[Rfam]
RNA: Bacterial RNase P class A
Organism: Prochlorococcus marinus
RNA sequence: GAAAGCAGGUGAGGUGUUCGCGAUCAAGUCGUCAUUGCCCUUGGCAAGACGCGCUUGGUUGAGGAAAGUCCGGGCUCCCCGAUGGCCAGACUUGCUGGGUAAUGCCCAGUGCGGGUGACCGUGAGGAGAGUGCCACAGAAAAACACCGCCGAUGGCCUCAUGGGGUUCUACUCCAGGCACAGGCAAGGGUGCAAAGGUGCGGUAAGAGCGCACCAGCAGCAUCGAGAGGUGCUGGCUCGGUAAACCCCGGUUGGGAGCAAGGCCAAGGGGCGAUGGCUGGCCAUCUGCCACGUUCCACAUAAAUGCGCCGCUUGAGGCCGUCGGUAACGGCGGUCCUAGAUAGAUGAGCACCCACUGCUCUUGAGCAGUGAACAGAACCCGGCUUACGACCUGCUUUCACCC
Numbered sequence: 001g002a003a004a005g006c007a008g009g010u011g012a013g014g015u016g017u018u019c020g021c022g023a024u025c026a027a028g029u030c031g032u033c034a035u036u037g038c039c040c041u042u043g044g045c046a047a048g049a050c051g052c053g054c055u056u057g058g059u060u061g062a063g064g065a066a067a068g069u070c071c072g073g074g075c076u077c078c079c080c081g082a083u084g085g086c087c088a089g090a091c092u093u094g095c096u097g098g099g100u101a102a103u104g105c106c107c108a109g110u111g112c113g114g115g116u117g118a119c120c121g122u123g124a125g126g127a128g129a130g131u132g133c134c135a136c137a138g139a140a141a142a143a144c145a146c147c148g149c150c151g152a153u154g155g156c157c158u159c160a161u162g163g164g165g166u167u168c169u170a171c172u173c174c175a176g177g178c179a180c181a182g183g184c185a186a187g188g189g190u191g192c193a194a195a196g197g198u199g200c201g202g203u204a205a206g207a208g209c210g211c212a213c214c215a216g217c218a219g220c221a222u223c224g225a226g227a228g229g230u231g232c233u234g235g236c237u238c239g240g241u242a243a244a245c246c247c248c249g250g251u252u253g254g255g256a257g258c259a260a261g262g263c264c265a266a267g268g269g270g271c272g273a274u275g276g277c278u279g280g281c282c283a284u285c286u287g288c289c290a291c292g293u294u295c296c297a298c299a300u301a302a303a304u305g306c307g308c309c310g311c312u313u314g315a316g317g318c319c320g321u322c323g324g325u326a327a328c329g330g331c332g333g334u335c336c337u338a339g340a341u342a343g344a345u346g347a348g349c350a351c352c353c354a355c356u357g358c359u360c361u362u363g364a365g366c367a368g369u370g371a372a373c374a375g376a377a378c379c380c381g382g383c384u385u386a387c388g389a390c391c392u393g394c395u396u397u398c399a400c401c402c
Stems, first nucleotide, its partner, number of pairs: 001398010011387001013352007021061009066385003070382005075257004084284001089252003093249002095109005110124001111122004125247002130245002132241003146188002148184003153179002156176001196214006216236001217234007261309003267296006275289003279285001316335008